Overview: Rfam assigns this 318-nucleotide RNA from Phalacrocorax carbo to the family "Small Cajal body-specific RNA 7". By type it is a small Cajal body RNA. Gene Ontology terms of the family: RNA processing and nucleolus. Lineage of the source: Eukaryota > Deuterostomia > Aves > Suliformes > Phalacrocorax.

[Rfam]
RNA sequence: UGGAAGUGAUGAAAUAGAGAUAAUCGGAUGUCUCUUUGAAUGGAGUGUGUGUGAUAAAUGGAAUUUAAACCAAGUUAAACUGGGGGUGGGGUGUGGAGAAUGUGUGUGUGCGUGCAUGUACAGGAAAGGCUUUAAACGGGGGCACUGAUAAUGCAGUGCUGAUUCCGGAGUGCAUCUGAGGCAUGUUGUUAUGUUCUGGGGUGCCACUUCACAACAUUGCCGAUGAUUAAAGCCCAAAACAAGCCCACCAAGACAAGCCUAGGCAUCCUAAAUCUCUAACAGGUCCACUAAUGAAAGUGAUCCUGUGAUCUGAUCCAA
Dot-bracket structure: ((((...................................................................................................................................................................................((((((.(((.((....).).))..).)))))).................................................................................................)))).